[Rfam]
RNA sequence: UCGAGACGGUGCAGCCGCAGAAUCUGGGUUGGCGAUAAACUGGCGGCGGAAUCGCCCCAGGCGCAGCUCCUGAGCGGUUCCGGAACCACCUCCUCGGCCGCCGUGCGGACGGGGAGGGCCAGCCAGCAGCCGCUGCAACCCCAGGGAG
Numbered sequence: 001u002c003g004a005g006a007c008g009g010u011g012c013a014g015c016c017g018c019a020g021a022a023u024c025u026g027g028g029u030u031g032g033c034g035a036u037a038a039a040c041u042g043g044c045g046g047c048g049g050a051a052u053c054g055c056c057c058c059a060g061g062c063g064c065a066g067c068u069c070c071u072g073a074g075c076g077g078u079u080c081c082g083g084a085a086c087c088a089c090c091u092c093c094u095c096g097g098c099c100g101c102c103g104u105g106c107g108g109a110c111g112g113g114g115a116g117g118g119c120c121a122g123c124c125a126g127c128a129g130c131c132g133c134u135g136c137a138a139c140c141c142c143a144g145g146g147a148g
Base pairs, nucleotide, nucleotide: 049110052108053107054106057105060102061101062100063099124135125134126133127132
Streptomyces-metK RNA: a 148-nucleotide sequence from Wenjunlia vitaminophila. By type it is a small RNA. Lineage of the source: Bacteria > Bacillati > Actinomycetota > Streptomycetaceae > Wenjunlia. A search with the family's covariance model found it, with a score of 47 bits.